Shown here is an 80-nucleotide RNA from Crocodylus porosus, a member of the family "Mammalian CPEB3 ribozyme". The source organism's lineage runs through Eukaryota, Eumetazoa, Bilateria, Craniata and Crocodylus.
RNA sequence: AGGGGUCACAAGGUUAAGGACAUAGCAGAGGUGCUCAUGGUAUAGCCCUAUCAGAUUCCAGUGAAUCUGAAAAUUCUGCU
Numbered sequence: 001a002g003g004g005g006u007c008a009c010a011a012g013g014u015u016a017a018g019g020a021c022a023u024a025g026c027a028g029a030g031g032u033g034c035u036c037a038u039g040g041u042a043u044a045g046c047c048c049u050a051u052c053a054g055a056u057u058c059c060a061g062u063g064a065a066u067c068u069g070a071a072a073a074u075u076c077u078g079c080u
Base pairs, nucleotide, nucleotide: 013048018047019046024080025079026078027077028076029075030074031043032042033041052069053068054067055066056065057064058063